Shown here is a 114-nucleotide sequence from Mesorhabditis spiculigera, a member of the family "Potassium channel RNA editing signal". The organism belongs to Mesorhabditis, within Eukaryota. This family represents a group of sequences related to the human potassium channel Kv1.1 hairpin element which directs the efficient modification of an adenosine to inosine by an adenosine deaminase acting on RNA (ADAR). The ADAR modification causes an isoleucine/valine recoding event which lies in the ion-conducting pore of the potassium channel. It is thought that this editing event targets the process of fast inactivation and allows a more rapid recovery from inactivation at negative potentials. The base pairs follow the family's consensus structure, which is taken from published work. Rfam classes the family as a cis-regulatory element.
Nucleotides: 114
Stems, first nucleotide, its partner, number of pairs: 001114002004111002009106003013102004018097002021095002037077004049063003
Number, partner (000 for none) and nucleotide at each position: 001114g002113u003000c004111g005110g006000c007000u008000u009106c010105g011104g012000a013102g014101a015100u016099a017000u018097g019096g020000u021095g022094c023000c024000a025000a026000a027000a028000a029000c030000g031000u032000g033000g034000u035000u036000g037077g038076g039075c040074a041000u042000g043000g044000u045000g046000g047000u048000c049063g050062g051061u052000u053000c054000u055000g056000u057000u058000u059000g060000u061051g062050c063049c064000a065000u066000g067000a068000u069000g070000g071000g072000u073000g074040u075039g076038c077037u078000g079000a080000c081000c082000a083000u084000c085000g086000c087000c088000c089000u090000c091000c092000c093000g094022g095021u096019u097018c098000c099016u100015g101014u102013c103000a104011u105010c106009g107000u108000c109000u110005c111004c112000a113002a114001c